About this RNA:
The record is a 120-nucleotide sequence from Clostridium novyi, which matches "FMN riboswitch aptamer (RFN element)" in Rfam. NCBI's taxonomy places the organism under Bacteria, Bacillota, Clostridiaceae, Clostridium, Clostridium novyi. Its family is annotated with FMN binding in the Gene Ontology. Pairs were carried over by alignment from the consensus structure, which is taken from published work.
[Rfam]
RNA sequence: UUAAUCCUUCAGGGCAGGGUGAAAUUCCCGACCGGCGGUAAAGUCCGCGAGCCACUUUAGUGGUUGAUUUGGUGAGAUUCCAAGACCGACAGUAAAGUCUGGAUGGGAGAAUAGGAUUAA
Numbered sequence: 001u002u003a004a005u006c007c008u009u010c011a012g013g014g015c016a017g018g019g020u021g022a023a024a025u026u027c028c029c030g031a032c033c034g035g036c037g038g039u040a041a042a043g044u045c046c047g048c049g050a051g052c053c054a055c056u057u058u059a060g061u062g063g064u065u066g067a068u069u070u071g072g073u074g075a076g077a078u079u080c081c082a083a084g085a086c087c088g089a090c091a092g093u094a095a096a097g098u099c100u101g102g103a104u105g106g107g108a109g110a111a112u113a114g115g116a117u118u119a120a
Base pairs, nucleotide, nucleotide: 003118004117005116006115007114008113009110010109017029018028019027031098032097033088034087035048036047037046038045043086044085051064052063053062068084069083070082071081072080090101091100092099